[Rfam]
RNA sequence: UCCAGGCAUGUAAACAUCCUACACUCUCAGCUGUGUUGUCAUGGAGCUGGGAGAAGGGUGUUUACCCUCCUGGU
Numbered sequence: 001u002c003c004a005g006g007c008a009u010g011u012a013a014a015c016a017u018c019c020u021a022c023a024c025u026c027u028c029a030g031c032u033g034u035g036u037u038g039u040c041a042u043g044g045a046g047c048u049g050g051g052a053g054a055a056g057g058g059u060g061u062u063u064a065c066c067c068u069c070c071u072g073g074u
Stems, first nucleotide, its partner, number of pairs: 002073005010065011024053009